[Rfam]
RNA: Z30 small nucleolar RNA
Organism: Alligator sinensis
RNA sequence: AAGCAAUGAUGAGUGAAGUAUAGUUUGACCUGGUAUUACCAAGAUGUUGUGCCUUGAUUCUGACCAGGGUAUGAUCACAUAAUCUUCUCUCUCAGCUA
Numbered sequence: 001a002a003g004c005a006a007u008g009a010u011g012a013g014u015g016a017a018g019u020a021u022a023g024u025u026u027g028a029c030c031u032g033g034u035a036u037u038a039c040c041a042a043g044a045u046g047u048u049g050u051g052c053c054u055u056g057a058u059u060c061u062g063a064c065c066a067g068g069g070u071a072u073g074a075u076c077a078c079a080u081a082a083u084c085u086u087c088u089c090u091c092u093c094a095g096c097u098a
Base pairs, nucleotide, nucleotide: 001097003096004095038058040056041055